The family of this 535-nucleotide sequence from Micavibrio aeruginosavorus is "Alphaproteobacteria transfer-messenger RNA". The literature on the family includes a 1996 paper in RNA by Williams and Bartel, "Phylogenetic analysis of tmRNA secondary structure". The match comes from Rfam's covariance-model search (218 bits). Lineage of the source: Bacteria > Bdellovibrionia > Pseudobdellovibrionaceae > Micavibrio > Micavibrio aeruginosavorus. It is annotated as a non-coding RNA gene.
RNA sequence: AUGAUUGAAAAAUCGCUGGUUUGCCUUAUACUUAUAUGUGCCGGGUUCGCCCGGCUAUGAGGCUAAACGCCGUUCGAAAUAAGCGACGUGGACCCGGGGGCAGUGCCCGGCAGCUCCACCAAAGUCCGCAGUUACGAGCGAAGCGAGUGUUACGAGGACUUUGUCGCGCCGUAGCGGGUGAAACCCGCGGAGGCGGACAGAGAUGAAGCCCGCCUCCGCCCCCAAGGGGCUACGGCGCGGCGCUCAAAAUCCUCAGGCUCACUUCGUUCACCAGCGGAUUUUGGCGGGGCUGAAACAGGAUCGACACGCGUGGUAAAGGGAUGGUUUGUCUUCGGCAUUGUACCGCCGUUAUCGGGCUAUUUUAUAUUUGCAAACGACAACUUCGUCGUAGCGAAUGACAACAGCCGUGAGGCUGCUGUCGCUAUCGCUGCCUAAUUUAUUAGGCAGUUGUAGUGAGUAGCUGCAAAUCAAUCCCUGUCGUCUAGACAACGGCAGGUGGGGCCCGGGCCGAGCCUCGCAACAGAAUCGGCCCACU
Numbered sequence: 001a002u003g004a005u006u007g008a009a010a011a012a013u014c015g016c017u018g019g020u021u022u023g024c025c026u027u028a029u030a031c032u033u034a035u036a037u038g039u040g041c042c043g044g045g046u047u048c049g050c051c052c053g054g055c056u057a058u059g060a061g062g063c064u065a066a067a068c069g070c071c072g073u074u075c076g077a078a079a080u081a082a083g084c085g086a087c088g089u090g091g092a093c094c095c096g097g098g099g100g101c102a103g104u105g106c107c108c109g110g111c112a113g114c115u116c117c118a119c120c121a122a123a124g125u126c127c128g129c130a131g132u133u134a135c136g137a138g139c140g141a142a143g144c145g146a147g148u149g150u151u152a153c154g155a156g157g158a159c160u161u162u163g164u165c166g167c168g169c170c171g172u173a174g175c176g177g178g179u180g181a182a183a184c185c186c187g188c189g190g191a192g193g194c195g196g197a198c199a200g201a202g203a204u205g206a207a208g209c210c211c212g213c214c215u216c217c218g219c220c221c222c223c224a225a226g227g228g229g230c231u232a233c234g235g236c237g238c239g240g241c242g243c244u245c246a247a248a249a250u251c252c253u254c255a256g257g258c259u260c261a262c263u264u265c266g267u268u269c270a271c272c273a274g275c276g277g278a279u280u281u282u283g284g285c286g287g288g289g290c291u292g293a294a295a296c297a298g299g300a301u302c303g304a305c306a307c308g309c310g311u312g313g314u315a316a317a318g319g320g321a322u323g324g325u326u327u328g329u330c331u332u333c334g335g336c337a338u339u340g341u342a343c344c345g346c347c348g349u350u351a352u353c354g355g356g357c358u359a360u361u362u363u364a365u366a367u368u369u370g371c372a373a374a375c376g377a378c379a380a381c382u383u384c385g386u387c388g389u390a391g392c393g394a395a396u397g398a399c400a401a402c403a404g405c406c407g408u409g410a411g412g413c414u415g416c417u418g419u420c421g422c423u424a425u426c427g428c429u430g431c432c433u434a435a436u437u438u439a440u441u442a443g444g445c446a447g448u449u450g451u452a453g454u455g456a457g458u459a460g461c462u463g464c465a466a467a468u469c470a471a472u473c474c475c476u477g478u479c480g481u482c483u484a485g486a487c488a489a490c491g492g493c494a495g496g497u498g499g500g501g502c503c504c505g506g507g508c509c510g511a512g513c514c515u516c517g518c519a520a521c522a523g524a525a526u527c528g529g530c531c532c533a534c535u
Stems, first nucleotide, its partner, number of pairs: 040055005059332005069325007084310002088307003094110005111292007333348004338359001340357001343355002499515004505532006
Rfam's curators write: Bacterial tmRNA, also known as 10Sa RNA or SsrA, is named for its dual tRNA and mRNA-like properties. Its role is to liberate the mRNA from a stalled ribosome.